[Rfam]
RNA sequence: UAUACUUGCAGAUAGAAAUAUGCUGUAUACCCGCUCAACCGAAUUAACGUUUAAGCGACAUGUAAUGUCGUCGGACGCGGGGCCGCCAUUUGGCGGUUUUUUUACUA
Dot-bracket structure: ......((((((((....))).)))))..(((((....((((((....)))...((((((.....)))))))))..)))))((((((....))))))..........
RNA: DUF3800-I RNA